[Rfam]
RNA sequence: CCACUCUGAAAAGCGAAGCAAACUGGAAACAGCACUGCUUCCGCCGACGGUGAAAGCCAUCCCGAGUUCACACUCGUGGUCGCGAAACUCUCAGGCCGAUGACAGAGGGGGA
Numbered sequence: 001c002c003a004c005u006c007u008g009a010a011a012a013g014c015g016a017a018g019c020a021a022a023c024u025g026g027a028a029a030c031a032g033c034a035c036u037g038c039u040u041c042c043g044c045c046g047a048c049g050g051u052g053a054a055a056g057c058c059a060u061c062c063c064g065a066g067u068u069c070a071c072a073c074u075c076g077u078g079g080u081c082g083c084g085a086a087a088c089u090c091u092c093a094g095g096c097c098g099a100u101g102a103c104a105g106a107g108g109g110g111g112a
Stems, first nucleotide, its partner, number of pairs: 001110002004107005015041006043096003046092002050090001052088001056083002